[Rfam]
Nucleotides: 104
Base pairs, nucleotide, nucleotide: 010091011090012089013088014087015086016085018083019082021080022079023078024077025076027074028073029072030071031070032067033065034064035063037061038060039059040058041057042056043055044054
Number, partner (000 for none) and nucleotide at each position: 001000g002000c003000g004000u005000g006000u007000c008000c009000g010091u011090g012089c013088a014087c015086c016085g017000u018083g019082g020000u021080c022079u023078c024077u025076g026000c027074c028073c029072g030071a031070a032067c033065c034064g035063a036000c037061c038060c039059u040058g041057g042056c043055g044054u045000a046000c047000u048000u049000c050000c051000c052000c053000g054044a055043c056042g057041c058040c059039a060038g061037g062000u063035u064034c065033g066000c067032g068000a069000c070031u071030u072029c073028g074027g075000a076025c077024a078023g079022g080021g081000a082019c083018c084000u085016c086015g087014g088013u089012g090011c091010a092000g093000g094000g095000a096000c097000g098000c099000c100000a101000c102000u103000g104000u